About this RNA:
This 242-nucleotide RNA from Peribacillus deserti belongs to the Rfam family "Group II catalytic intron D1-D4-6". The organism belongs to Peribacillus, within Bacteria. Rfam's curators write: Group II introns are found in rRNA, tRNA and mRNA of organelles in fungi, plants and protists, and also in mRNA in bacteria. A reference for the family is Bonen and Vogel (2001), "The ins and outs of group II introns", Trends Genet. Rfam links the family to the GO term Group II intron splicing. A search with the family's covariance model found it, with a score of 158 bits. The pairing is the family consensus, mapped onto this sequence.
RNA sequence: GGAUUCCCAUCGAGUAAGAACUAGCCGUUCGCUCGUAGCGAGUCUUGGAGGGCUAAAGGUAACUUUAGUCUUUAAGCGUAGACAGUUAGGUGGGGUGGCGGGCCGAAAGCCAAAUGGUUGAAGGGAUUGAGCUCCAUAAUGUUAGUAAAUCGAGAGGGCUGAUGCCUUACGCACUGCAGAAAGCUACAUUUUAUCCUUCGUUAAGGGCAAGAUGGAUAAAACCUCUCUGGAGUCAGAGACCU
Numbered sequence: 001g002g003a004u005u006c007c008c009a010u011c012g013a014g015u016a017a018g019a020a021c022u023a024g025c026c027g028u029u030c031g032c033u034c035g036u037a038g039c040g041a042g043u044c045u046u047g048g049a050g051g052g053c054u055a056a057a058g059g060u061a062a063c064u065u066u067a068g069u070c071u072u073u074a075a076g077c078g079u080a081g082a083c084a085g086u087u088a089g090g091u092g093g094g095g096u097g098g099c100g101g102g103c104c105g106a107a108a109g110c111c112a113a114a115u116g117g118u119u120g121a122a123g124g125g126a127u128u129g130a131g132c133u134c135c136a137u138a139a140u141g142u143u144a145g146u147a148a149a150u151c152g153a154g155a156g157g158g159c160u161g162a163u164g165c166c167u168u169a170c171g172c173a174c175u176g177c178a179g180a181a182a183g184c185u186a187c188a189u190u191u192u193a194u195c196c197u198u199c200g201u202u203a204a205g206g207g208c209a210a211g212a213u214g215g216a217u218a219a220a221a222c223c224u225c226u227c228u229g230g231a232g233u234c235a236g237a238g239a240c241c242u
Base pairs, nucleotide, nucleotide: 011035012034013033014032018030019029020028021027022210024208025207038086039085042083043082044081045080046078047077048073049072050071051070052069053068054067055066056065057064058063128236129234131233132232133231134230135229136228152227153226154225155224156223157222158184159183160182163178164177165176189221190220191219192218193217194216195215196214198212199211